This 72-nucleotide RNA from Xanthomonas campestris belongs to the Rfam family "Xanthomonas sRNA sX9". Pairs were carried over by alignment from the consensus structure, which was predicted with RNAalifold. Lineage of the source: Bacteria > Pseudomonadati > Pseudomonadota > Xanthomonas > Xanthomonas campestris pv. campestris. Rfam classes the family as a small RNA.
[Rfam]
Nucleotides: 072
Base pairs, nucleotide, nucleotide: 002015003014004013005012006011019034020033021032022031024029048072050070051069052067
Number, partner (000 for none) and nucleotide at each position: 001000a002015u003014g004013u005012a006011c007000c008000u009000a010000c011006g012005u013004a014003c015002a016000c017000u018000c019034c020033g021032g022031u023000u024029c025000c026000u027000c028000c029024g030000c031022g032021c033020c034019g035000u036000c037000c038000g039000c040000a041000c042000c043000c044000a045000c046000c047000u048072g049000a050070c051069g052067a053000c054000u055000g056000c057000u058000c059000g060000c061000u062000a063000c064000g065000u066000u067052u068000c069051c070050g071000c072048u